RNA sequence: ACACUUGCGCCGUCUUUGGGGAGUAGCCUUCCUUCGUGAUCGAAGGAGAACGCGUCAACAUCCUCGGCCCUGCUGCCGUGGCGCGUUCGACCGGAACGGUUUGGCGAGACCAUCGAUGCGCCAUGUCGUUCCUGGUCGGACGGCGCAUGGCGCAUCGUGGUUCGCUUCACGUCCGGCC
Numbered sequence: 001a002c003a004c005u006u007g008c009g010c011c012g013u014c015u016u017u018g019g020g021g022a023g024u025a026g027c028c029u030u031c032c033u034u035c036g037u038g039a040u041c042g043a044a045g046g047a048g049a050a051c052g053c054g055u056c057a058a059c060a061u062c063c064u065c066g067g068c069c070c071u072g073c074u075g076c077c078g079u080g081g082c083g084c085g086u087u088c089g090a091c092c093g094g095a096a097c098g099g100u101u102u103g104g105c106g107a108g109a110c111c112a113u114c115g116a117u118g119c120g121c122c123a124u125g126u127c128g129u130u131c132c133u134g135g136u137c138g139g140a141c142g143g144c145g146c147a148u149g150g151c152g153c154a155u156c157g158u159g160g161u162u163c164g165c166u167u168c169a170c171g172u173c174c175g176g177c178c
Stems, first nucleotide, its partner, number of pairs: 031046003048088010065078004089178001091176005
RNA: Manganese Mn2+ riboswitch aptamer (yybP-ykoY)
Organism: Caballeronia novacaledonica